RNA sequence: ACAUAAAAUAUACAUAUUUCUCAUAUAUCCUCGGGAAUUGGCCCGAGAGUCUCUACCCGGUGACCGUAAUCACUGGACUAUGAGCUGAAAGUGAAUCUAG
Numbered sequence: 001a002c003a004u005a006a007a008a009u010a011u012a013c014a015u016a017u018u019u020c021u022c023a024u025a026u027a028u029c030c031u032c033g034g035g036a037a038u039u040g041g042c043c044c045g046a047g048a049g050u051c052u053c054u055a056c057c058c059g060g061u062g063a064c065c066g067u068a069a070u071c072a073c074u075g076g077a078c079u080a081u082g083a084g085c086u087g088a089a090a091g092u093g094a095a096u097c098u099a100g
Stems, first nucleotide, its partner, number of pairs: 020084006030047006057076007